RNA sequence: UAAAGAUAAAGGUAAACCAUUGAAAGGUGGUGACGCAAAACUAAAGGGAGUAAAUGUACGCUUCCCUAUGUCAGCCAGUUGCCGUA
Numbered sequence: 001u002a003a004a005g006a007u008a009a010a011g012g013u014a015a016a017c018c019a020u021u022g023a024a025a026g027g028u029g030g031u032g033a034c035g036c037a038a039a040a041c042u043a044a045a046g047g048g049a050g051u052a053a054a055u056g057u058a059c060g061c062u063u064c065c066c067u068a069u070g071u072c073a074g075c076c077a078g079u080u081g082c083c084g085u086a
Base pairs, nucleotide, nucleotide: 012036013035016031017030018029019028020027021026039080040079041078042077046076047075048072049071056065058063

c-di-GMP-I riboswitch aptamer: an 86-nucleotide RNA from Paraliobacillus quinghaiensis. The base pairs follow the family's consensus structure, which is taken from published work. It scores 53 bits against the family's covariance model. NCBI's taxonomy places the organism under Bacteria, Bacillati, Bacilli, Caryophanales, Paraliobacillus.